RNA sequence: AAAACAACGCAGAGGGACUGCAUGUCUGGGAUAGUGCCUGGAGAGAUUGCAGUUGAGAAGGUUAAAACCUGACUCUUUGAACCUGUCAGUUAAUACUGUCGUAGGGAGCGUAUUGGGAAGAUGU
Numbered sequence: 001a002a003a004a005c006a007a008c009g010c011a012g013a014g015g016g017a018c019u020g021c022a023u024g025u026c027u028g029g030g031a032u033a034g035u036g037c038c039u040g041g042a043g044a045g046a047u048u049g050c051a052g053u054u055g056a057g058a059a060g061g062u063u064a065a066a067a068c069c070u071g072a073c074u075c076u077u078u079g080a081a082c083c084u085g086u087c088a089g090u091u092a093a094u095a096c097u098g099u100c101g102u103a104g105g106g107a108g109c110g111u112a113u114u115g116g117g118a119a120g121a122u123g124u
Stems, first nucleotide, its partner, number of pairs: 007111004011076004016070001017053005060069003082105004087098003